[Rfam]
RNA sequence: UGUUAAAAGAAAUUCAUUCAUUCCUACUAUUAAAAACUUGCGUGGCUGAUAGAAAAACUAGAUAGUGAUGCGUUAUGUGUACCUUAUGACAUACAUAGGCAAAUUUUUAACAAUAAAAAUUGAUGACAUUUUUAGCA
Numbered sequence: 001u002g003u004u005a006a007a008a009g010a011a012a013u014u015c016a017u018u019c020a021u022u023c024c025u026a027c028u029a030u031u032a033a034a035a036a037c038u039u040g041c042g043u044g045g046c047u048g049a050u051a052g053a054a055a056a057a058c059u060a061g062a063u064a065g066u067g068a069u070g071c072g073u074u075a076u077g078u079g080u081a082c083c084u085u086a087u088g089a090c091a092u093a094c095a096u097a098g099g100c101a102a103a104u105u106u107u108u109a110a111c112a113a114u115a116a117a118a119a120u121u122g123a124u125g126a127c128a129u130u131u132u133u134a135g136c137a
Base pairs, nucleotide, nucleotide: 002136003135004134005133006132007131008130009129014126015125016124017123018122020120021119022118025115026114028112030110031109032108033107034106035105